[Rfam]
RNA sequence: CUGACGGACGCGUCUGGGUCAAUUGCGGAACGCAACACCCGGUCGCCCUUCGCGUCCCCGAUGAGGGGGAUACGGGAGGGGGAACGCGUCACCCUCAG
Numbered sequence: 001c002u003g004a005c006g007g008a009c010g011c012g013u014c015u016g017g018g019u020c021a022a023u024u025g026c027g028g029a030a031c032g033c034a035a036c037a038c039c040c041g042g043u044c045g046c047c048c049u050u051c052g053c054g055u056c057c058c059c060g061a062u063g064a065g066g067g068g069g070a071u072a073c074g075g076g077a078g079g080g081g082g083a084a085c086g087c088g089u090c091a092c093c094c095u096c097a098g
Stems, first nucleotide, its partner, number of pairs: 001098004008089006015041004023035005043083002046080002049078003053074003
A member of the RNA family "L4-Archaeoglobi ribosomal protein leades", 98 nucleotides long. For this family Rfam cites "Discovery of 20 novel ribosomal leader candidates in bacteria and archaea" (Eckert and Weinberg, BMC Microbiol, 2020).